[Rfam]
RNA sequence: UUUAAAGUUUUAUAGGGUUCCGCAGUUUGAAAUUGAUAAUUGGUCUGGUCCAAGAUAAAACGCACAGUUUGCUGUGUUCACGGAAGGAUAAAAGCCUGGGAGAU
Numbered sequence: 001u002u003u004a005a006a007g008u009u010u011u012a013u014a015g016g017g018u019u020c021c022g023c024a025g026u027u028u029g030a031a032a033u034u035g036a037u038a039a040u041u042g043g044u045c046u047g048g049u050c051c052a053a054g055a056u057a058a059a060a061c062g063c064a065c066a067g068u069u070u071g072c073u074g075u076g077u078u079c080a081c082g083g084a085a086g087g088a089u090a091a092a093a094g095c096c097u098g099g100g101a102g103a104u
Base pairs, nucleotide, nucleotide: 007061008060009059010058011057012056015051016050020048021047022045023042024041025040026039027038062077063076064075065074066073067072079099081102085097086096087095
About this RNA
The family of this 104-nucleotide sequence from Clostridium kluyveri is "Guanidine-I riboswitch aptamer". Lineage of the source: Bacteria > Clostridia > Eubacteriales > Clostridiaceae > Clostridium kluyveri. The pairing is the family consensus, mapped onto this sequence. About the family: This family represents a conserved RNA structure found upstream of the ykkC and yxkD genes in Bacillus subtilis and related genes in other bacteria. The function of this family is unclear although it has been suggested that it may function to switch on efflux pumps and detoxification systems in response to harmful environmental molecules. It is one of the family's seed sequences.